[Rfam]
RNA sequence: ACAAUGAAGAGUUUGAUCCUGGCUCAGGAUGAACGCUAGCUACAGGCUUAACACAUGCAAGUCGAGGGGUAGCAGGGUAGCAAUACCGCUGACGACCGGCGCACGGGUGAGUAACACGUAUCCAACCUUCCCAUAACUCUGGGAUAGCCUUUCGAAAGAAAGAUUAAUACCGGAUGGUACUUUUUCAAGGCAUCUUGAGAAAGUUAAAGAUUUAUUGGUUAUGGAUGGGGAUGCGUUCCAUUAGAUAGUUGGUGAGGUAACGGCUCACCAAGUCUUCGAUGGAUAGGGGUUCUGAGAGGAAGGUCCCCCACAUUGGUACUGAGACACGGACCAAACUCCUACGGGAGGCAGCAGUGAGGAAUAUUGGUCAAUGGGCGAGAGCCUGAACCAGCCAAGUAGCGUGAAGGAUGAAGGUCCUAUGGAUUGUAAACUUCUUUUAUAGUAGAAUAAAGUGACCCACGUGUGGGUUUUUGUAUGUAUACUAUGAAUAAGGAUCGGCUAACUCCGUGCCAGCAGCCGCGGUAAUACGGAGGAUCCGAGCGUUAUCCGGAUUUAUUG
Numbered sequence: 001a002c003a004a005u006g007a008a009g010a011g012u013u014u015g016a017u018c019c020u021g022g023c024u025c026a027g028g029a030u031g032a033a034c035g036c037u038a039g040c041u042a043c044a045g046g047c048u049u050a051a052c053a054c055a056u057g058c059a060a061g062u063c064g065a066g067g068g069g070u071a072g073c074a075g076g077g078u079a080g081c082a083a084u085a086c087c088g089c090u091g092a093c094g095a096c097c098g099g100c101g102c103a104c105g106g107g108u109g110a111g112u113a114a115c116a117c118g119u120a121u122c123c124a125a126c127c128u129u130c131c132c133a134u135a136a137c138u139c140u141g142g143g144a145u146a147g148c149c150u151u152u153c154g155a156a157a158g159a160a161a162g163a164u165u166a167a168u169a170c171c172g173g174a175u176g177g178u179a180c181u182u183u184u185u186c187a188a189g190g191c192a193u194c195u196u197g198a199g200a201a202a203g204u205u206a207a208a209g210a211u212u213u214a215u216u217g218g219u220u221a222u223g224g225a226u227g228g229g230g231a232u233g234c235g236u237u238c239c240a241u242u243a244g245a246u247a248g249u250u251g252g253u254g255a256g257g258u259a260a261c262g263g264c265u266c267a268c269c270a271a272g273u274c275u276u277c278g279a280u281g282g283a284u285a286g287g288g289g290u291u292c293u294g295a296g297a298g299g300a301a302g303g304u305c306c307c308c309c310a311c312a313u314u315g316g317u318a319c320u321g322a323g324a325c326a327c328g329g330a331c332c333a334a335a336c337u338c339c340u341a342c343g344g345g346a347g348g349c350a351g352c353a354g355u356g357a358g359g360a361a362u363a364u365u366g367g368u369c370a371a372u373g374g375g376c377g378a379g380a381g382c383c384u385g386a387a388c389c390a391g392c393c394a395a396g397u398a399g400c401g402u403g404a405a406g407g408a409u410g411a412a413g414g415u416c417c418u419a420u421g422g423a424u425u426g427u428a429a430a431c432u433u434c435u436u437u438u439a440u441a442g443u444a445g446a447a448u449a450a451a452g453u454g455a456c457c458c459a460c461g462u463g464u465g466g467g468u469u470u471u472u473g474u475a476u477g478u479a480u481a482c483u484a485u486g487a488a489u490a491a492g493g494a495u496c497g498g499c500u501a502a503c504u505c506c507g508u509g510c511c512a513g514c515a516g517c518c519g520c521g522g523u524a525a526u527a528c529g530g531a532g533g534a535u536c537c538g539a540g541c542g543u544u545a546u547c548c549g550g551a552u553u554u555a556u557u558g
Stems, first nucleotide, its partner, number of pairs: 009025005027548004032544006039400005045393002047358001052356003056353003061100003066097002069093002076087004107311003116236008126228002131224007139173004147164001149162005179204007187196003209216002237283003244274003249271008286308004290301004313334005336347004364390001366389003372385005403434004413425004439485006448475001454469003492537005503532005513520002
RNA: Bacterial small subunit ribosomal RNA, nucleotides 1 to 558
Organism: Bacteroides luti